[Rfam]
RNA sequence: UCCGCUCUGCAGUAUUCGUGAGCCACGACAUAUGAAUCCCGAGUAAGCAUGAACCCGGGGGCAAGCACCUAGGCCGUGGUGAGCAGGCCCAGACUCUUUCACUGGGAAGCCUAAAGCGGCCCGCCAGCCCCCACCUAGCAAACUUGCUAGGGGUUCACGUCGAUCCGCCACGGUGCCCGCGGUCCCGGA
Numbered sequence: 001u002c003c004g005c006u007c008u009g010c011a012g013u014a015u016u017c018g019u020g021a022g023c024c025a026c027g028a029c030a031u032a033u034g035a036a037u038c039c040c041g042a043g044u045a046a047g048c049a050u051g052a053a054c055c056c057g058g059g060g061g062c063a064a065g066c067a068c069c070u071a072g073g074c075c076g077u078g079g080u081g082a083g084c085a086g087g088c089c090c091a092g093a094c095u096c097u098u099u100c101a102c103u104g105g106g107a108a109g110c111c112u113a114a115a116g117c118g119g120c121c122c123g124c125c126a127g128c129c130c131c132c133a134c135c136u137a138g139c140a141a142a143c144u145u146g147c148u149a150g151g152g153g154u155u156c157a158c159g160u161c162g163a164u165c166c167g168c169c170a171c172g173g174u175g176c177c178c179g180c181g182g183u184c185c186c187g188g189a
Stems, first nucleotide, its partner, number of pairs: 002187001004185001007182004012176004017172003032160003036155001038153003057132003061128002065124002072121006083110002088106005